RNA sequence: GCUUAUAACUUUCCAAAGAAUUCUCCUUUUGGGCUUUCUGAUUUUAUUUUAAGCCCAAAGGUGAAUUUUUUGGGAAGUUUGA
Number, nucleotide and partner (000 for none) at each position: 001g000002c000003u000004u000005a000006u000007a000008a078009c077010u076011u075012u074013c073014c072015a071016a070017a069018g068019a067020a066021u065022u064023c063024u000025c061026c060027u059028u058029u057030u000031g056032g055033g054034c053035u052036u051037u000038c000039u000040g000041a000042u000043u000044u000045u000046a000047u000048u000049u000050u000051a036052a035053g034054c033055c032056c031057a029058a028059a027060g026061g025062u000063g023064a022065a021066u020067u019068u018069u017070u016071u015072g014073g013074g012075a011076a010077g009078u008079u000080u000081g000082a000
RNA: mir-186 microRNA precursor family
Organism: Bos taurus